[Rfam]
RNA sequence: UACAAUAUGCGGCUUGAAGGACGGUCGGCUAGUCUCCCGGAAGGGAGGUGAUGCCUGUGGAGGUUAAAGAUGUUCUCACCUUAAUGCUCAUGUUUGGCAUGUUCAUUUUGGCGCUUCUUACCUACAUGAAAAAGAAAUAGACCGCCCUCCCUAAGGUAACGGUCUAUUUCGACCACCACUUAGCGGCCGACUGCUCUUUAUGCAGUUAUUGUGCUUAGGAGCCGUGUUCGCGCACGGCUC
Numbered sequence: 001u002a003c004a005a006u007a008u009g010c011g012g013c014u015u016g017a018a019g020g021a022c023g024g025u026c027g028g029c030u031a032g033u034c035u036c037c038c039g040g041a042a043g044g045g046a047g048g049u050g051a052u053g054c055c056u057g058u059g060g061a062g063g064u065u066a067a068a069g070a071u072g073u074u075c076u077c078a079c080c081u082u083a084a085u086g087c088u089c090a091u092g093u094u095u096g097g098c099a100u101g102u103u104c105a106u107u108u109u110g111g112c113g114c115u116u117c118u119u120a121c122c123u124a125c126a127u128g129a130a131a132a133a134g135a136a137a138u139a140g141a142c143c144g145c146c147c148u149c150c151c152u153a154a155g156g157u158a159a160c161g162g163u164c165u166a167u168u169u170c171g172a173c174c175a176c177c178a179c180u181u182a183g184c185g186g187c188c189g190a191c192u193g194c195u196c197u198u199u200a201u202g203c204a205g206u207u208a209u210u211g212u213g214c215u216u217a218g219g220a221g222c223c224g225u226g227u228u229c230g231c232g233c234a235c236g237g238c239u240c
Base pairs, nucleotide, nucleotide: 001213002212003211004210005209007207010189011188012187013186014185016149017148019146020145023142025140030051032049034047035046036045037044038043059121061119062118063117072087073086097112098111160171161170162169191205192204193203194202219240220239221238222237223236224235225234226233227232
RNA: BsrG